[Rfam]
RNA: mir-135 microRNA precursor family
RNA sequence: UGCUCUCUGCCCCGUAUGGCUUUUUAUUCCUAUCUGAGAAUGUUCAGGACUCAUAUAGGGAUGGAAGCCAUGCAGGGCUGGGGGAC
Numbered sequence: 001u002g003c004u005c006u007c008u009g010c011c012c013c014g015u016a017u018g019g020c021u022u023u024u025u026a027u028u029c030c031u032a033u034c035u036g037a038g039a040a041u042g043u044u045c046a047g048g049a050c051u052c053a054u055a056u057a058g059g060g061a062u063g064g065a066a067g068c069c070a071u072g073c074a075g076g077g078c079u080g081g082g083g084g085a086c
Base pairs, nucleotide, nucleotide: 003084004083005082006081007080009078010077011076012075014073015072016071017070018069019068020067021066022065023064026062027061028060029059030058031057032056033055035053036052037051